RNA: TPP riboswitch aptamer (THI element)
RNA sequence: ACAAUAUUUCAGGGGAGCUUGUAUAAGCAGGCUGAGAGGAAGUAAUCGAACUUCGACCCUUCAAACCUGAUUUGGGUAAUGCCAACGUAGGAAGAAGCAAGAUUAUGUUU
Numbered sequence: 001a002c003a004a005u006a007u008u009u010c011a012g013g014g015g016a017g018c019u020u021g022u023a024u025a026a027g028c029a030g031g032c033u034g035a036g037a038g039g040a041a042g043u044a045a046u047c048g049a050a051c052u053u054c055g056a057c058c059c060u061u062c063a064a065a066c067c068u069g070a071u072u073u074g075g076g077u078a079a080u081g082c083c084a085a086c087g088u089a090g091g092a093a094g095a096a097g098c099a100a101g102a103u104u105a106u107g108u109u110u
Stems, first nucleotide, its partner, number of pairs: 007097004011060004017032005039054005066091004072085004